Shown here is an 85-nucleotide RNA from Cnephaeus nilssonii, a member of the family "mir-9215 microRNA precursor family". A search with the family's covariance model found it, with a score of 103 bits. The organism belongs to Cnephaeus, within Eukaryota.
RNA sequence: UGAAGUGCUCUGACACUAGGACGUGUGGCUGUCGUGGGUUGGUGGAAACCAGGCUCGCCCAGGGUCAGUGUUACCAGUGUUCAGU
Numbered sequence: 001u002g003a004a005g006u007g008c009u010c011u012g013a014c015a016c017u018a019g020g021a022c023g024u025g026u027g028g029c030u031g032u033c034g035u036g037g038g039u040u041g042g043u044g045g046a047a048a049c050c051a052g053g054c055u056c057g058c059c060c061a062g063g064g065u066c067a068g069u070g071u072u073a074c075c076a077g078u079g080u081u082c083a084g085u
Stems, first nucleotide, its partner, number of pairs: 001083004006079004012072006019066001022063001024061002027059003031054003037050004